RNA sequence: AUCGACAAUAGAGGCGCGAUGAUUAUCAGUAUCUGCCAGGAGGUUUGCGAAAGCCGGGGAAAGACAGAGAAAGGAUGAUUCGCCGAAACCAGUGAUCGUUCGCAGGUCACUGAGUUGGGGUACCGUUUAAGAGACGGUGCACUCUCACCUUUCUGGUGGAGGAGCUAUUGUUUCA
Numbered sequence: 001a002u003c004g005a006c007a008a009u010a011g012a013g014g015c016g017c018g019a020u021g022a023u024u025a026u027c028a029g030u031a032u033c034u035g036c037c038a039g040g041a042g043g044u045u046u047g048c049g050a051a052a053g054c055c056g057g058g059g060a061a062a063g064a065c066a067g068a069g070a071a072a073g074g075a076u077g078a079u080u081c082g083c084c085g086a087a088a089c090c091a092g093u094g095a096u097c098g099u100u101c102g103c104a105g106g107u108c109a110c111u112g113a114g115u116u117g118g119g120g121u122a123c124c125g126u127u128u129a130a131g132a133g134a135c136g137g138u139g140c141a142c143u144c145u146c147a148c149c150u151u152u153c154u155g156g157u158g159g160a161g162g163a164g165c166u167a168u169u170g171u172u173u174c175a
Stems, first nucleotide, its partner, number of pairs: 006170006016083004024075001032068004037063001087116003090112008117143002120140008145159005
Shown here is a 175-nucleotide RNA sequence from Lachnospiraceae bacterium AM48-27BH, a member of the family "Lysine riboswitch aptamer". Pairs were carried over by alignment from the consensus structure, which is taken from published work. Riboswitches are metabolite binding domains within certain messenger RNAs that serve as precision sensors for their corresponding targets. The family has 47 seed sequences and 3,224 matches in Rfam 15.1. Rfam links the family to the GO term lysine biosynthetic process. The organism belongs to Lachnospiraceae, within Bacteria.